The family of this 149-nucleotide RNA sequence from Geobacter sp. SVR is "FMN riboswitch aptamer (RFN element)".
RNA sequence: ACUUAUCCUCGGGGCGGGGUGCAAUUCCCCACCGGCGGUAUUCCGGCGUGCGCCGGAGAGCCCGCAAGCGCUUUCCCGGUAUGGGAAAGGCCAGCAGAUCCGGUGAAAUGCCGGAGCCGACGGUACAGUCCGGAUGAAAGAGGAUAGGA
Numbered sequence: 001a002c003u004u005a006u007c008c009u010c011g012g013g014g015c016g017g018g019g020u021g022c023a024a025u026u027c028c029c030c031a032c033c034g035g036c037g038g039u040a041u042u043c044c045g046g047c048g049u050g051c052g053c054c055g056g057a058g059a060g061c062c063c064g065c066a067a068g069c070g071c072u073u074u075c076c077c078g079g080u081a082u083g084g085g086a087a088a089g090g091c092c093a094g095c096a097g098a099u100c101c102g103g104u105g106a107a108a109u110g111c112c113g114g115a116g117c118c119g120a121c122g123g124u125a126c127a128g129u130c131c132g133g134a135u136g137a138a139a140g141a142g143g144a145u146a147g148g149a
Stems, first nucleotide, its partner, number of pairs: 003147008017029003031129002033119002035065004060117002068095002099115005121132003
For this family Rfam cites "Regulation of riboflavin biosynthesis and transport genes in bacteria by transcriptional and translational attenuation" (Vitreschak et al., Nucleic Acids Res, 2002).